The family of this 106-nucleotide sequence from Lentibacillus sp. CBA3610 is "TPP riboswitch aptamer (THI element)". It scores 85 bits against the family's covariance model. Rfam links the family to the GO term thiamine pyrophosphate binding. The source organism's lineage runs through Bacteria, Bacillota, Bacilli, Bacillaceae and Lentibacillus.

RNA sequence: UUAUUUCACUAGGGGUGCCUUUUAAAGGCUGAGAUUAGAGUGUACUCUAAGACCCUUUGAACCUGACCUGGUUAGCGCCAGCGGAGGAAAGUGGACAUUAUAGCAU
Numbered sequence: 001u002u003a004u005u006u007c008a009c010u011a012g013g014g015g016u017g018c019c020u021u022u023u024a025a026a027g028g029c030u031g032a033g034a035u036u037a038g039a040g041u042g043u044a045c046u047c048u049a050a051g052a053c054c055c056u057u058u059g060a061a062c063c064u065g066a067c068c069u070g071g072u073u074a075g076c077g078c079c080a081g082c083g084g085a086g087g088a089a090a091g092u093g094g095a096c097a098u099u100a101u102a103g104c105a106u
Base pairs, nucleotide, nucleotide: 006094007093008092009091010090011056012055013054014053016050017029018028019027020026021025036049037048038047039046040045062087063086064085068081069080070079071078